mir-1986 microRNA precursor family: a 61-nucleotide sequence from Pomacea canaliculata. A search with the family's covariance model found it, with a score of 56 bits. The organism belongs to Pomacea, within Eukaryota.

RNA sequence: GGCCGCGGGUCAUGGGAGCGCCACGUACAAUCAAAGCGGUGGAUUUCCCAAGAUCCGUGAU
Numbered sequence: 001g002g003c004c005g006c007g008g009g010u011c012a013u014g015g016g017a018g019c020g021c022c023a024c025g026u027a028c029a030a031u032c033a034a035a036g037c038g039g040u041g042g043a044u045u046u047c048c049c050a051a052g053a054u055c056c057g058u059g060a061u
Stems, first nucleotide, its partner, number of pairs: 004059008013050006021042004